The family of this 68-nucleotide RNA sequence from Cavia porcellus is "mir-367 microRNA precursor family". Taxonomically the source falls in Cavia (Eukaryota, Eumetazoa, Deuterostomia, Caviidae). The base pairs follow the family's consensus structure, which was predicted with RNAalifold. The family has 14 seed sequences and 541 matches in Rfam 15.1. Its family is annotated with RISC complex and miRNA-mediated post-transcriptional gene silencing in the Gene Ontology.
RNA sequence: CCGCCACUGUUGCUAGUGUGCAACUCUGCUGCGUGCACCCUGGAAUUGCACUUUAGCAAUGGUGACGG
Numbered sequence: 001c002c003g004c005c006a007c008u009g010u011u012g013c014u015a016g017u018g019u020g021c022a023a024c025u026c027u028g029c030u031g032c033g034u035g036c037a038c039c040c041u042g043g044a045a046u047u048g049c050a051c052u053u054u055a056g057c058a059a060u061g062g063u064g065a066c067g068g
Stems, first nucleotide, its partner, number of pairs: 005064012019050005025044004